[Rfam]
RNA sequence: AAUAGUUAAUGACAAUGACCUUUUAAACCUUUAGAGGGCAGAGGUCGUUCGAUGAAUAUCUAUU
Numbered sequence: 001a002a003u004a005g006u007u008a009a010u011g012a013c014a015a016u017g018a019c020c021u022u023u024u025a026a027a028c029c030u031u032u033a034g035a036g037g038g039c040a041g042a043g044g045u046c047g048u049u050c051g052a053u054g055a056a057u058a059u060c061u062a063u064u
Base pairs, nucleotide, nucleotide: 001064002063003062004061005060014049015048016047017046018045019044020043021042022041023040028037029036030035
The family of this 64-nucleotide RNA sequence from Helobdella robusta is "Selenocysteine insertion sequence 1". The incorporation of selenocysteine into a protein sequence is directed by an in-frame UGA codon (usually a stop codon) within the coding region of the mRNA. Selenoprotein mRNAs contain a conserved secondary structure in the 3' UTR that is required for the distinction of UGA stop from UGA selenocysteine. The selenocysteine insertion sequence (SECIS) is around 60 nt in length and adopts a hairpin structure which is sufficiently well-defined and conserved to act as a computational screen for selenoprotein genes. The match comes from Rfam's covariance-model search (37 bits). On this family, see Walczak et al., RNA 1996: "A novel RNA structural motif in the selenocysteine insertion element of eukaryotic selenoprotein mRNAs". Rfam classes the family as a cis-regulatory element.